RNA sequence: CGGCAUAAGUGGAGAAGUGGUCUCUACGCUUGGUUCAAAAGUGAGAUUCAACUCCUCCGACUUAUUCCG
Dot-bracket structure: ......((((((((..((....((..(((((.......))))).))....).).))))).)))......